[Rfam]
Nucleotides: 236
Base pairs, nucleotide, nucleotide: 012034013033014032015031016030019025022202023201036088037087038086042083043082044081045080047077048073049072050071051070052069053068054067055066056065057064058063123230126227127226128225129224130223131222144221145220146219147218148217149216150177151176152175155171156170157169158168183215184214185213186212187211188210189209190208192206193205
Number, partner (000 for none) and nucleotide at each position: 001000c002000a003000a004000g005000u006000u007000u008000g009000g010000u011000a012034u013033g014032g015031g016030a017000a018000a019025u020000u021000a022202c023201c024000u025019g026000u027000u028000u029000a030016u031015c032014c033013c034012a035000u036088c037087a038086g039000c040000a041000g042083g043082g044081g045080a046000u047077a048073c049072a050071u051070g052069c053068u054067u055066c056065u057064c058063a059000g060000u061000g062000a063058u064057g065056a066055g067054g068053g069052g070051u071050a072049u073048g074000a075000a076000g077047u078000u079000a080045u081044c082043u083042u084000a085000u086038c087037u088036g089000c090000a091000a092000a093000a094000u095000c096000a097000c098000a099000g100000g101000c102000u103000g104000c105000a106000g107000c108000g109000a110000g111000a112000g113000c114000g115000a116000a117000c118000g119000a120000a121000a122000c123230a124000u125000a126227a127226c128225a129224c130223c131222g132000u133000u134000a135000g136000c137000u138000u139000u140000g141000a142000a143000c144221g145220g146219g147218a148217a149216g150177g151176c152175c153000g154000a155171a156170u157169c158168c159000g160000u161000g162000u163000g164000g165000u166000u167000u168158g169157g170156a171155u172000g173000a174000a175152g176151g177150c178000u179000a180000a181000c182000a183215c184214a185213g186212a187211g188210g189209c190208a191000a192206u193205a194000a195000a196000c197000a198000a199000c200000g201023g202022g203000c204000u205193u206192g207000a208190u209189g210188c211187c212186u213185c214184u215183g216149c217148u218147u219146c220145c221144c222131c223130g224129g225128u226127g227126u228000c229000g230123u231000g232000u233000c234000g235000g236000c